[Rfam]
RNA: Group II catalytic intron D1-D4-6
Organism: Spartinivicinus marinus
RNA sequence: CAACUCCCUCCCGGUAAAGGUUAACCACCAGCCGGAAGUGAGUCUUGCAUGGGUAACGGCAACGUUAUUCGUGAAGCGUAGACAGCGGGUACUGAAGCCGUGGGAUUGAGUCUCGAUAUCAUGUACCAGUCGGAGACCUCAUUGUGUUGGGUGUGGGGUCAGCACUGCCAAUACCACUACAGGUGAGGUAUUGCAGUCCGACCGGGAUCUAUGACCA
Dot-bracket structure: ..........((((....((([.[[.)))..))))..((..(((((((((((((((((....)))))))))))...)).)))).))....................((.((((((.............(((((((((..(((..........)))..)))....((((.((((((.......]].]))))))))))))))))))))))).)......